[Rfam]
RNA sequence: GAAAGUGUGAAAUCAAUUUGUGUCUUUUGUGGCCCCUGGUGCAGUUAAUGUGCCGACAGCAGAGGGAGCAUUAAACUCAUUGCGCACAGUAAAGUGUGGGGAGUGAUACCCAUGUUCCUAUGUCA
Numbered sequence: 001g002a003a004a005g006u007g008u009g010a011a012a013u014c015a016a017u018u019u020g021u022g023u024c025u026u027u028u029g030u031g032g033c034c035c036c037u038g039g040u041g042c043a044g045u046u047a048a049u050g051u052g053c054c055g056a057c058a059g060c061a062g063a064g065g066g067a068g069c070a071u072u073a074a075a076c077u078c079a080u081u082g083c084g085c086a087c088a089g090u091a092a093a094g095u096g097u098g099g100g101g102a103g104u105g106a107u108a109c110c111c112a113u114g115u116u117c118c119u120a121u122g123u124c125a
Stems, first nucleotide, its partner, number of pairs: 005051004010046001013043001014041002022033003065118001067116005077106005085098003
Rfam assigns this 125-nucleotide RNA from Bucco capensis to the family "Small nucleolar RNA ACA64". A reference for the family is Schattner et al. (2006), "A computational screen for mammalian pseudouridylation guide H/ACA RNAs", RNA. The family's consensus secondary structure was predicted with WAR. Rfam classes the family as an H/ACA-box small nucleolar RNA. Lineage of the source: Eukaryota > Saurischia > Theropoda > Neoaves > Bucco.